Notes
This 200-nucleotide sequence from Medicago truncatula belongs to the Rfam family "MIR2619 microRNA precursor family". Gene Ontology terms of the family: miRNA-mediated post-transcriptional gene silencing and RISC complex.
[Rfam]
RNA sequence: AAACAGCCUCAUAUGCAUUAGAUCUUUGGUAGUUUUGGUCCCCAAGGCCACUUUUGACUUAGUCUUCGCUGACGUGGCACCCACAUUCCUUAAAUGAGAUGCCACGUGUCGACCAUUGUGGGUGCCACGUCAGCGAAGACUAAGUCAAAGUGGCCUUGUGGGUCAAAACUGACAAAGAUCCAAUACAUAGGGGGCUGUUU
Numbered sequence: 001a002a003a004c005a006g007c008c009u010c011a012u013a014u015g016c017a018u019u020a021g022a023u024c025u026u027u028g029g030u031a032g033u034u035u036u037g038g039u040c041c042c043c044a045a046g047g048c049c050a051c052u053u054u055u056g057a058c059u060u061a062g063u064c065u066u067c068g069c070u071g072a073c074g075u076g077g078c079a080c081c082c083a084c085a086u087u088c089c090u091u092a093a094a095u096g097a098g099a100u101g102c103c104a105c106g107u108g109u110c111g112a113c114c115a116u117u118g119u120g121g122g123u124g125c126c127a128c129g130u131c132a133g134c135g136a137a138g139a140c141u142a143a144g145u146c147a148a149a150g151u152g153g154c155c156u157u158g159u160g161g162g163u164c165a166a167a168a169c170u171g172a173c174a175a176a177g178a179u180c181c182a183a184u185a186c187a188u189a190g191g192g193g194g195c196u197g198u199u200u
Stems, first nucleotide, its partner, number of pairs: 001200002004197005012189004017184003021180008030171012043158003072130002075127008
Dot-bracket structure: ((.(((((...((((.(((.((((((((.((((((((((((.(((..........................((.((((((((.....................................)))))))).)).........................))).)))))))))))).)))))))).))).))))...))))).))